Rfam assigns this 131-nucleotide RNA from Loxodonta africana to the family "Small nucleolar RNA SNORA38". From the family's description: ACA38 is a member of the H/ACA class of snoRNA that guide the sites of modification of uridines to pseudouridines.

[Rfam]
RNA sequence: UCCUCCUACAAAGGCGUGUCUGUGGUUCCCUGUCCUUGUACACGUAAGAAUUGGAGGCAAAGAAAUGUGGACUUGGAGAAGGCUGGGGCCAGCUCGCUACUUGCAGGCUCAAGCUCAUCCAUCCCACAUCG
Numbered sequence: 001u002c003c004u005c006c007u008a009c010a011a012a013g014g015c016g017u018g019u020c021u022g023u024g025g026u027u028c029c030c031u032g033u034c035c036u037u038g039u040a041c042a043c044g045u046a047a048g049a050a051u052u053g054g055a056g057g058c059a060a061a062g063a064a065a066u067g068u069g070g071a072c073u074u075g076g077a078g079a080a081g082g083c084u085g086g087g088g089c090c091a092g093c094u095c096g097c098u099a100c101u102u103g104c105a106g107g108c109u110c111a112a113g114c115u116c117a118u119c120c121a122u123c124c125c126a127c128a129u130c131g
Stems, first nucleotide, its partner, number of pairs: 002057005015044005021038001024030002069124003073121001091109004096104002
The sequence is in the family's curated seed alignment. Rfam 15.1 lists 628 matches to the family in 149 species. Rfam classes the family as an H/ACA-box small nucleolar RNA. Rfam links the family to the GO terms RNA processing, Cajal body and nucleolus. Taxonomically the source falls in Loxodonta (Eukaryota, Craniata, Vertebrata, Elephantidae).